[Rfam]
RNA: HNH endonuclease-associated RNA and ORF (HEARO) RNA
RNA sequence: GUCAUGGACCCUGGUUUGAAAACCGGGGCAUGUAGCAAUCCGAGCGAUUGAUGCACGCCCCGCCAUUUUCCGACCGCAACAUGAGCAGACUUGGCCCGAAAGGGCUCCGUUGGAGGCGAAUACAACAUUAGGUACCGGUGGGUGCGAGGCCAGCCCACCGCUCUACGGCCAGUAGUUAAACAGAUCGAGGGUACGGUCAGUGCCUCUGGCAAACAAACCGCUUCCAACAUUGUCGAGGCCACCAUUAC
Numbered sequence: 001g002u003c004a005u006g007g008a009c010c011c012u013g014g015u016u017u018g019a020a021a022a023c024c025g026g027g028g029c030a031u032g033u034a035g036c037a038a039u040c041c042g043a044g045c046g047a048u049u050g051a052u053g054c055a056c057g058c059c060c061c062g063c064c065a066u067u068u069u070c071c072g073a074c075c076g077c078a079a080c081a082u083g084a085g086c087a088g089a090c091u092u093g094g095c096c097c098g099a100a101a102g103g104g105c106u107c108c109g110u111u112g113g114a115g116g117c118g119a120a121u122a123c124a125a126c127a128u129u130a131g132g133u134a135c136c137g138g139u140g141g142g143u144g145c146g147a148g149g150c151c152a153g154c155c156c157a158c159c160g161c162u163c164u165a166c167g168g169c170c171a172g173u174a175g176u177u178a179a180a181c182a183g184a185u186c187g188a189g190g191g192u193a194c195g196g197u198c199a200g201u202g203c204c205u206c207u208g209g210c211a212a213a214c215a216a217a218c219c220g221c222u223u224c225c226a227a228c229a230u231u232g233u234c235g236a237g238g239c240c241a242c243c244a245u246u247a248c
Stems, first nucleotide, its partner, number of pairs: 002084005010028002012025002015022002029044001031042002088234003093106005109228010132166002136160008146242001148240004168210005175203002180201002183198005